[Rfam]
RNA sequence: AUAAAUCUUCAGGGCAGGGCGUAAUUCCCUACUGGCGGUACACUCCGCGAACCUUCGGGCCGAACUGGUGAAAUUCCAGUAGCAACAGUUAAAGUCUGGAUGAAAGAAGAGUUUA
Numbered sequence: 001a002u003a004a005a006u007c008u009u010c011a012g013g014g015c016a017g018g019g020c021g022u023a024a025u026u027c028c029c030u031a032c033u034g035g036c037g038g039u040a041c042a043c044u045c046c047g048c049g050a051a052c053c054u055u056c057g058g059g060c061c062g063a064a065c066u067g068g069u070g071a072a073a074u075u076c077c078a079g080u081a082g083c084a085a086c087a088g089u090u091a092a093a094g095u096c097u098g099g100a101u102g103a104a105a106g107a108a109g110a111g112u113u114u115a
Base pairs, nucleotide, nucleotide: 003113004112006110007109008108009107010106017029018028019027031095032094033084034083035048036047037046038045043082044081052059053058064080065079066078067077068076086098087097088096
This 115-nucleotide RNA sequence from Firmicutes bacterium M10-2 belongs to the Rfam family "FMN riboswitch aptamer (RFN element)".